Description
A member of the RNA family "mir-7563 microRNA precursor family" from Ameiurus melas, 76 nucleotides long. Pairs were carried over by alignment from the consensus structure, which was predicted with RNAalifold. The family has 3 seed sequences and 362 matches in Rfam 15.1. NCBI's taxonomy places the organism under Eukaryota, Opisthokonta, Teleostomi, Teleostei, Ameiurus. It scores 80 bits against the family's covariance model.
RNA sequence: ACUGUGUACUUACCUACUGUAUAGUAGCUCAGAUGCAUGUAUUUCUCCUACUAUAUAGUAGAUAAGUACACGGUUU
Dot-bracket structure: ((((((((((((.((.(((((((((((...(.(((....))).)...))))))))))).)).))))))))))))..